This 151-nucleotide sequence from Ktedonospora formicarum belongs to the Rfam family "Group II catalytic intron D1-D4-7". Group II introns are found in rRNA, tRNA and mRNA of organelles in fungi, plants and protists, and also in mRNA in bacteria. The source organism's lineage runs through Bacteria, Bacillati, Ktedonobacterales, Ktedonobacteraceae and Ktedonospora. The base pairs follow the family's consensus structure.

RNA sequence: CCCGAUGUUCUGCCAUCGGUAUCCUACCAGGGCCUGCGUUUGGAGCAAUCCAAGGGUGGGAAGCCCCUGGGAUAAUGUAGCCUCACUCGUAAGAGUGGCGGUCGAUCCGUGAGGAAGAGCCGCGACUGCUAGCACCAAGGCGGUUGGGAAC
Numbered sequence: 001c002c003c004g005a006u007g008u009u010c011u012g013c014c015a016u017c018g019g020u021a022u023c024c025u026a027c028c029a030g031g032g033c034c035u036g037c038g039u040u041u042g043g044a045g046c047a048a049u050c051c052a053a054g055g056g057u058g059g060g061a062a063g064c065c066c067c068u069g070g071g072a073u074a075a076u077g078u079a080g081c082c083u084c085a086c087u088c089g090u091a092a093g094a095g096u097g098g099c100g101g102u103c104g105a106u107c108c109g110u111g112a113g114g115a116a117g118a119g120c121c122g123c124g125a126c127u128g129c130u131a132g133c134a135c136c137a138a139g140g141c142g143g144u145u146g147g148g149a150a151c
Base pairs, nucleotide, nucleotide: 002019003018004017005016006015007014028069029068030067031066032065033060034059035058036057037056039054040053041052042051043050044049084097085096086095087094088093098123099122100121101120107114108113125144126143127142128141129140130139